[Rfam]
RNA sequence: GGCUGGUGCGAAGGUAGUGAGUUAUCUCGCCUGAGUGUUCGCAGUCAGUUACGGAUUGACCUCCUUGUUCCUUGUUCUACUACUUUCCCCGCUUCUCACUACUACACUUGACUAGUCUAAA
Numbered sequence: 001g002g003c004u005g006g007u008g009c010g011a012a013g014g015u016a017g018u019g020a021g022u023u024a025u026c027u028c029g030c031c032u033g034a035g036u037g038u039u040c041g042c043a044g045u046c047a048g049u050u051a052c053g054g055a056u057u058g059a060c061c062u063c064c065u066u067g068u069u070c071c072u073u074g075u076u077c078u079a080c081u082a083c084u085u086u087c088c089c090c091g092c093u094u095c096u097c098a099c100u101a102c103u104a105c106a107c108u109u110g111a112c113u114a115g116u117c118u119a120a121a
Stems, first nucleotide, its partner, number of pairs: 001117007010109002014105002016100006044081001047078002